Shown here is a 137-nucleotide RNA from Caenorhabditis remanei, a member of the family "Caenorhabditis snoRNA ceN38". The family has 3 seed sequences and 8 matches in Rfam 15.1. The sequence is in the family's curated seed alignment. The family's consensus secondary structure was predicted with RNAalifold. The family's RNA type in Rfam is H/ACA-box small nucleolar RNA.
[Rfam]
RNA sequence: ACGCGUCUUAUUCAUCCAAUCUUCAACGUGAAACACAAUGUUGGGGAUUCAGCGUAUUUCGGACGCAAAACUGACAACUUCUCCAUUGACGUCUAGUUAGCUUUCACUACCUGGAUACAAUUAGGAAGUUGACAAUU
Numbered sequence: 001a002c003g004c005g006u007c008u009u010a011u012u013c014a015u016c017c018a019a020u021c022u023u024c025a026a027c028g029u030g031a032a033a034c035a036c037a038a039u040g041u042u043g044g045g046g047a048u049u050c051a052g053c054g055u056a057u058u059u060c061g062g063a064c065g066c067a068a069a070a071c072u073g074a075c076a077a078c079u080u081c082u083c084c085a086u087u088g089a090c091g092u093c094u095a096g097u098u099a100g101c102u103u104u105c106a107c108u109a110c111c112u113g114g115a116u117a118c119a120a121u122u123a124g125g126a127a128g129u130u131g132a133c134a135a136u137u
Stems, first nucleotide, its partner, number of pairs: 003066006018049012076130007085121004091116006098109003